Description:
The record is a 74-nucleotide RNA sequence from Dokdonella koreensis, which matches "tRNA" in Rfam.
RNA sequence: GUGGGCGUAGCUCAGCUGGUUAGAGUACCGGAUUGUGAUUCCGGUUGUCGGGGGUUCGAAUCCCCUCGCUCACC
Numbered sequence: 001g002u003g004g005g006c007g008u009a010g011c012u013c014a015g016c017u018g019g020u021u022a023g024a025g026u027a028c029c030g031g032a033u034u035g036u037g038a039u040u041c042c043g044g045u046u047g048u049c050g051g052g053g054g055u056u057c058g059a060a061u062c063c064c065c066u067c068g069c070u071c072a073c074c
Base pairs, nucleotide, nucleotide: 001073002072003071004070005069006068007067010026011025012024013023028044029043030042031041032040050066051065052064053063054062
The base pairs follow the family's consensus structure, which is taken from published work. Its family is annotated with triplet codon-amino acid adaptor activity in the Gene Ontology. Transfer RNA (tRNA) molecules are approximately 80 nucleotides in length.